[Rfam]
The family of this 139-nucleotide RNA from Pseudomonas putida is "radC RNA". Rfam classes the family as a cis-regulatory element. Rfam 15.1 lists 500 matches to the family in 142 species.
RNA sequence: ACGAAGGUUCAAAGCGCUGCCUUAGGCAGCACCCCAGAUGACCAGAGCCUUCAAGGUCAUGCCGCUAACCCGGUGGUUCAUCCCAAAGUGCGAUUCGCGCCCGGAGGCUCGCACGGUCAUUCGCCAGAAUGAUGGACGC
Numbered sequence: 001a002c003g004a005a006g007g008u009u010c011a012a013a014g015c016g017c018u019g020c021c022u023u024a025g026g027c028a029g030c031a032c033c034c035c036a037g038a039u040g041a042c043c044a045g046a047g048c049c050u051u052c053a054a055g056g057u058c059a060u061g062c063c064g065c066u067a068a069c070c071c072g073g074u075g076g077u078u079c080a081u082c083c084c085a086a087a088g089u090g091c092g093a094u095u096c097g098c099g100c101c102c103g104g105a106g107g108c109u110c111g112c113a114c115g116g117u118c119a120u121u122c123g124c125c126a127g128a129a130u131g132a133u134g135g136a137c138g139c
Stems, first nucleotide, its partner, number of pairs: 016030006038060006046078004061074004110138002116133007